Rfam assigns this 76-nucleotide sequence from Pelodiscus sinensis to the family "Small nucleolar RNA SNORD101". On this family, see Vitali et al., Nucleic Acids Res 2003: "Identification of 13 novel human modification guide RNAs". The family's RNA type in Rfam is C/D-box small nucleolar RNA. It scores 77 bits against the family's covariance model. Its Rfam clan is "SNORD101 clan".
RNA sequence: GUUUUGAAUGAUGACUCUCAACAAUGUCGGAUACCCCUUCACUCUUUUUAUGAGUGAUAAAAAUAGUCUGACAAAC
Dot-bracket structure: ((.(((.................................................................)))))
Numbered sequence: 001g002u003u004u005u006g007a008a009u010g011a012u013g014a015c016u017c018u019c020a021a022c023a024a025u026g027u028c029g030g031a032u033a034c035c036c037c038u039u040c041a042c043u044c045u046u047u048u049u050a051u052g053a054g055u056g057a058u059a060a061a062a063a064u065a066g067u068c069u070g071a072c073a074a075a076c
Stems, first nucleotide, its partner, number of pairs: 001076002004074003